[Rfam]
RNA sequence: AAAAAAAAAGUAUGUAAGUCGCUCUGGAUAAGAGCGUCUGCUAAAUGACGUAAA
Numbered sequence: 001a002a003a004a005a006a007a008a009a010g011u012a013u014g015u016a017a018g019u020c021g022c023u024c025u026g027g028a029u030a031a032g033a034g035c036g037u038c039u040g041c042u043a044a045a046u047g048a049c050g051u052a053a054a
Stems, first nucleotide, its partner, number of pairs: 013043001014041003020036006
This 54-nucleotide RNA sequence from Coregonus sp. 'balchen' belongs to the Rfam family "UnaL2 LINE 3' element". It scores 72 bits against the family's covariance model. A reference for the family is Baba et al. (2004), "Solution structure of an RNA stem-loop derived from the 3' conserved region of eel LINE UnaL2", RNA. The family has 30 seed sequences and 493,311 matches in Rfam 15.1. Pairs were carried over by alignment from the consensus structure, which is taken from published work.